[Rfam]
Rfam assigns this 391-nucleotide sequence from Flavimobilis marinus to the family "Bacterial RNase P class A". Taxonomically the source falls in Flavimobilis (Bacteria, Bacillati, Actinomycetes, Micrococcales). Pairs were carried over by alignment from the consensus structure, which is taken from published work.

RNA sequence: UGAGUCAGUCGGACGGUCGCGUUGCACCCCGGUGCACCGAGGAACGUCCGGGCUCCGUAGAGCAAGGUGGUGGGUAACGCCCACCCGGGGUGACCCGCGGGACAGUGCCACAGAAAACAGACCGCCACGCUGGACCAGGCCUCGGCCGGGGCCGGCGGGGUAAGGGUGAAACGGUGGUGUAAGAGACCACCAGCGUGCCGGGUGACCGGCGCGGCUAGGUAAACCCCACCUGGAGCAAGACCAGACAGGAUGCGCUCGAGGGCUGCUCGCCCGAGCAUCCGGGUAGGUCGCUCGAGGCACGUGGCAACGCGUGCCCUAGAUGGAUGGCCGUCACCCGCGCGUGGGCAACCGCGCGCGGAGACAGAACCCGGCGUACAGACUGACUCAUCCG
Numbered sequence: 001u002g003a004g005u006c007a008g009u010c011g012g013a014c015g016g017u018c019g020c021g022u023u024g025c026a027c028c029c030c031g032g033u034g035c036a037c038c039g040a041g042g043a044a045c046g047u048c049c050g051g052g053c054u055c056c057g058u059a060g061a062g063c064a065a066g067g068u069g070g071u072g073g074g075u076a077a078c079g080c081c082c083a084c085c086c087g088g089g090g091u092g093a094c095c096c097g098c099g100g101g102a103c104a105g106u107g108c109c110a111c112a113g114a115a116a117a118c119a120g121a122c123c124g125c126c127a128c129g130c131u132g133g134a135c136c137a138g139g140c141c142u143c144g145g146c147c148g149g150g151g152c153c154g155g156c157g158g159g160g161u162a163a164g165g166g167u168g169a170a171a172c173g174g175u176g177g178u179g180u181a182a183g184a185g186a187c188c189a190c191c192a193g194c195g196u197g198c199c200g201g202g203u204g205a206c207c208g209g210c211g212c213g214g215c216u217a218g219g220u221a222a223a224c225c226c227c228a229c230c231u232g233g234a235g236c237a238a239g240a241c242c243a244g245a246c247a248g249g250a251u252g253c254g255c256u257c258g259a260g261g262g263c264u265g266c267u268c269g270c271c272c273g274a275g276c277a278u279c280c281g282g283g284u285a286g287g288u289c290g291c292u293c294g295a296g297g298c299a300c301g302u303g304g305c306a307a308c309g310c311g312u313g314c315c316c317u318a319g320a321u322g323g324a325u326g327g328c329c330g331u332c333a334c335c336c337g338c339g340c341g342u343g344g345g346c347a348a349c350c351g352c353g354c355g356c357g358g359a360g361a362c363a364g365a366a367c368c369c370g371g372c373g374u375a376c377a378g379a380c381u382g383a384c385u386c387a388u389c390c391g
Base pairs, nucleotide, nucleotide: 001387002386003385004384005383006382007381008380009379010378011376012332013331014330015329016328017327018326020039021038023036024035025034026033027032044374045373046372048371049370050369051368052367053235054234055233056232060268061267062266063265065231066230067229068228069227070084071083072082073081074080085099086097087096088095089094100226101225105224106223107220108219109218122165123164124161125160126159128157129156130155131154132153173191174190175189176188177187178186193215194213195212196211197210198209199208200207201206239289240288241287242286248280249279250278251277252276253275260272261271262270263269296315297314298313299312300311301310302309303308